[Rfam]
RNA sequence: UGGCGCGUUAAAACUGAUAUAAUAUGUAUAUAUAUUAUAUAUACAUAUUAUAUCAGUUUUAACGCGCCAAA
Numbered sequence: 001u002g003g004c005g006c007g008u009u010a011a012a013a014c015u016g017a018u019a020u021a022a023u024a025u026g027u028a029u030a031u032a033u034a035u036u037a038u039a040u041a042u043a044c045a046u047a048u049u050a051u052a053u054c055a056g057u058u059u060u061a062a063c064g065c066g067c068c069a070a071a
Stems, first nucleotide, its partner, number of pairs: 005065018025047003

Overview
The family of this 71-nucleotide RNA from Brassicogethes aeneus is "mir-2 microRNA precursor family". The base pairs follow the family's consensus structure, which was predicted with PFOLD. Lineage of the source: Eukaryota > Altocrustacea > Pterygota > Meligethinae > Brassicogethes. On this family, see Lee and Ambros, Science 2001: "An extensive class of small RNAs in Caenorhabditis elegans".